Rfam assigns this 78-nucleotide RNA sequence from Escherichia coli to the family "Nucleoid-associated noncoding RNA 4 (CssrE)". Rfam describes the family as follows. In E. coli small RNA transcribed from repeated extragenic palindromic element (REP325) called nucleoid-associated ncRNA 4 (nRNA4) collaborates HU protein in condensing the DNA. The secondary structure but not the sequence of the RNA is important in nucleoid condensation. The base pairs follow the family's consensus structure, which is taken from published work. It scores 86 bits against the family's covariance model. The family has 3 seed sequences and 870 matches in Rfam 15.1.

[Rfam]
RNA sequence: GGCCGGAUAAGGCGUUCACGCCGCAUCCGGCAUUUGAGCAUAGUGCCUGAUGCGACGCUUGAUGCGUCUUAUCAGGCC
Numbered sequence: 001g002g003c004c005g006g007a008u009a010a011g012g013c014g015u016u017c018a019c020g021c022c023g024c025a026u027c028c029g030g031c032a033u034u035u036g037a038g039c040a041u042a043g044u045g046c047c048u049g050a051u052g053c054g055a056c057g058c059u060u061g062a063u064g065c066g067u068c069u070u071a072u073c074a075g076g077c078c
Base pairs, nucleotide, nucleotide: 002031003030004029005028006027007026008025011022012021013020014019045077046076047075048074049073050072051071052070054068055067056066057065058064